[Rfam]
RNA sequence: GCCCCAUGGUUGCUGGAUGCUGUUGUACAGGUACAGCUCUCCAGUGAAUGUGAGGGGCCAGAGCAAUCCUGUGAUUUAUGCAUGGGGCUGUUUCUUUUCAGCAGCUGCCAUAGCCCGGUCACUGGUACAUGG
Number, nucleotide and partner (000 for none) at each position: 001g058002c057003c056004c055005c000006a000007u050008g049009g000010u047011u046012g045013c044014u043015g042016g041017a040018u000019g037020c036021u035022g034023u033024u000025g000026u000027a000028c000029a000030g000031g000032u000033a023034c022035a021036g020037c019038u000039c000040u017041c016042c015043a014044g013045u012046g011047a010048a000049u008050g007051u000052g000053a000054g000055g004056g003057g002058c001059c000060a000061g000062a000063g000064c000065a000066a000067u000068c000069c124070u000071g122072u121073g120074a119075u118076u117077u000078a000079u000080g114081c113082a111083u110084g109085g108086g106087g105088c104089u103090g102091u101092u100093u000094c000095u000096u000097u000098u000099c000100a092101g091102c090103a089104g088105c087106u086107g000108c085109c084110a083111u082112a000113g081114c080115c000116c000117g076118g075119u074120c073121a072122c071123u000124g069125g000126u000127a000128c000129a000130u000131g000132g000
Small nucleolar RNA SNORA84: a 132-nucleotide RNA sequence from Sus scrofa. Lineage of the source: Eukaryota > Craniata > Dipnotetrapodomorpha > Tetrapoda > Sus. A reference for the family is Marker et al. (2002), "Experimental RNomics: identification of 140 candidates for small non-messenger RNAs in the plant Arabidopsis thaliana", Curr Biol. The family's RNA type in Rfam is H/ACA-box small nucleolar RNA.